[Rfam]
RNA sequence: UAAUAGUUAUACGACUGACGGAAGUGGAAUUAACCACAUGAAGUAUGACAGUGCAGCGCCGACCGUCUGGGCAAUUCAG
Numbered sequence: 001u002a003a004u005a006g007u008u009a010u011a012c013g014a015c016u017g018a019c020g021g022a023a024g025u026g027g028a029a030u031u032a033a034c035c036a037c038a039u040g041a042a043g044u045a046u047g048a049c050a051g052u053g054c055a056g057c058g059c060c061g062a063c064c065g066u067c068u069g070g071g072c073a074a075u076u077c078a079g
Stems, first nucleotide, its partner, number of pairs: 003052002006049007015040001017067005024037004058072003
Shown here is a 79-nucleotide sequence from Dielma fastidiosa, a member of the family "ZMP/ZTP riboswitch aptamer (pfl RNA motif)".
The literature on the family includes a 2015 paper in Mol Cell by Kim et al., "An ancient riboswitch class in bacteria regulates purine biosynthesis and one-carbon metabolism".
The family has 185 seed sequences and 3,295 matches in Rfam 15.1.
It scores 55 bits against the family's covariance model.